[Rfam]
RNA sequence: AUAUUUGAAAGAGGUUGCAACCAACAUCAGUAGGCUAAUUUAGAAGACGGGCUUCGGAGAUUAGAUGAAAGGGACGGUUGCCGAAAUUAGUUAAUUUCCGUAGAUUAACUUUUUGGGCCAAUGCUUAAUAGGCGUUGGACUGUCGCAGCGAAAAAUGUCGGCUGCGGGGCGCUAUCGACAAA
Numbered sequence: 001a002u003a004u005u006u007g008a009a010a011g012a013g014g015u016u017g018c019a020a021c022c023a024a025c026a027u028c029a030g031u032a033g034g035c036u037a038a039u040u041u042a043g044a045a046g047a048c049g050g051g052c053u054u055c056g057g058a059g060a061u062u063a064g065a066u067g068a069a070a071g072g073g074a075c076g077g078u079u080g081c082c083g084a085a086a087u088u089a090g091u092u093a094a095u096u097u098c099c100g101u102a103g104a105u106u107a108a109c110u111u112u113u114u115g116g117g118c119c120a121a122u123g124c125u126u127a128a129u130a131g132g133c134g135u136u137g138g139a140c141u142g143u144c145g146c147a148g149c150g151a152a153a154a155a156u157g158u159c160g161g162c163u164g165c166g167g168g169g170c171g172c173u174a175u176c177g178a179c180a181a182a
Base pairs, nucleotide, nucleotide: 006177007176008175010173011172017081018080019079020078021077022076025073033066035064036063037062038061039060040059085114086113089110090109091108092107093106094105095104096103115141116140118138119137120136121135122134123133124132125131143167144166145165146164147163148162149161

Annotation: Lysine riboswitch aptamer: a 182-nucleotide RNA from Periweissella fabalis. Rfam links the family to the GO term lysine biosynthetic process. It scores 110 bits against the family's covariance model.